The record is a 114-nucleotide RNA sequence from Hemibagrus wyckioides, which matches "Potassium channel RNA editing signal" in Rfam. The match comes from Rfam's covariance-model search (108 bits). The family has 85 seed sequences and 14,095 matches in Rfam 15.1.

RNA sequence: GUCGGCUACGGAGAUAUGCACCCGGUGACCAUCGGGGGGAAGAUCGUCGGCUCGCUAUGUGCCAUUGCUGGUGUUUUGACGAUCGCGCUUCCAGUGCCCGUCAUCGUCUCCAAU
Numbered sequence: 001g002u003c004g005g006c007u008a009c010g011g012a013g014a015u016a017u018g019c020a021c022c023c024g025g026u027g028a029c030c031a032u033c034g035g036g037g038g039g040a041a042g043a044u045c046g047u048c049g050g051c052u053c054g055c056u057a058u059g060u061g062c063c064a065u066u067g068c069u070g071g072u073g074u075u076u077u078g079a080c081g082a083u084c085g086c087g088c089u090u091c092c093a094g095u096g097c098c099c100g101u102c103a104u105c106g107u108c109u110c111c112a113a114u
Stems, first nucleotide, its partner, number of pairs: 001114002004111002008107004013102003018097004037077004049063003

It is annotated as a cis-regulatory element.